[Rfam]
RNA sequence: CAUCGGCGUACAUCACCGGGAACGUGUUCCCAUCGAGGUGCCGAGAGGGGCAAGCCUCGGCAACAGCGCAUUAUGCGGAAAGCCGGAACAUCAAGUGUUCGGGUAGGGUUUGGUAGGCGCAAGCUCGAAGAACCCGGACCCG
Numbered sequence: 001c002a003u004c005g006g007c008g009u010a011c012a013u014c015a016c017c018g019g020g021a022a023c024g025u026g027u028u029c030c031c032a033u034c035g036a037g038g039u040g041c042c043g044a045g046a047g048g049g050g051c052a053a054g055c056c057u058c059g060g061c062a063a064c065a066g067c068g069c070a071u072u073a074u075g076c077g078g079a080a081a082g083c084c085g086g087a088a089c090a091u092c093a094a095g096u097g098u099u100c101g102g103g104u105a106g107g108g109u110u111u112g113g114u115a116g117g118c119g120c121a122a123g124c125u126c127g128a129a130g131a132a133c134c135c136g137g138a139c140c141c142g
Stems, first nucleotide, its partner, number of pairs: 003044006011038001013036002018031005047055001057086005067077004100142005106135006116125003
RNA: RT-3 RNA